[Rfam]
RNA sequence: UGACUGUCCAUUAUUACUUUUGGUACGCGCUGUGACGCAUCAAACUCGUACCGUGAGUAAUAAUGCGCAGUGG
Numbered sequence: 001u002g003a004c005u006g007u008c009c010a011u012u013a014u015u016a017c018u019u020u021u022g023g024u025a026c027g028c029g030c031u032g033u034g035a036c037g038c039a040u041c042a043a044a045c046u047c048g049u050a051c052c053g054u055g056a057g058u059a060a061u062a063a064u065g066c067g068c069a070g071u072g073g
Stems, first nucleotide, its partner, number of pairs: 009065010021053007029045001